[Rfam]
RNA sequence: AGGUUUGAAAUUCCUCGGCAGUUAACUGCAGCCGGUUCUUUAAAAUUUCGGAAGUUAACUGCCGAUGAAUAU
Numbered sequence: 001a002g003g004u005u006u007g008a009a010a011u012u013c014c015u016c017g018g019c020a021g022u023u024a025a026c027u028g029c030a031g032c033c034g035g036u037u038c039u040u041u042a043a044a045a046u047u048u049c050g051g052a053a054g055u056u057a058a059c060u061g062c063c064g065a066u067g068a069a070u071a072u
Base pairs, nucleotide, nucleotide: 012068013067015065016064017063018062019061020060021059022058023057024056025055026054027053029051

This 72-nucleotide RNA sequence from Medicago truncatula belongs to the Rfam family "MIR2629 microRNA precursor family". Taxonomically the source falls in Medicago (Eukaryota, Spermatophyta, eudicotyledons, Gunneridae).